[Rfam]
A member of the RNA family "TPP riboswitch aptamer (THI element)" from Acetilactobacillus jinshanensis, 91 nucleotides long. The match comes from Rfam's covariance-model search (73 bits). The organism belongs to Acetilactobacillus, within Bacteria.

RNA sequence: UAAUGUUAUCUGGGGUGCCGUAAUGGCUGAGAUAGACCCAUUGAACCUGAUCUGGUUAGCGCCAGCGUAGGAAUGAUGUCAAUCAUCACAG
Numbered sequence: 001u002a003a004u005g006u007u008a009u010c011u012g013g014g015g016u017g018c019c020g021u022a023a024u025g026g027c028u029g030a031g032a033u034a035g036a037c038c039c040a041u042u043g044a045a046c047c048u049g050a051u052c053u054g055g056u057u058a059g060c061g062c063c064a065g066c067g068u069a070g071g072a073a074u075g076a077u078g079u080c081a082a083u084c085a086u087c088a089c090a091g
Stems, first nucleotide, its partner, number of pairs: 007078004011040004016034001017027004046071004052065004
Dot-bracket structure: ......((((((((.(((((...))))......)..)))).....((((..((((......))))..))))...)))).............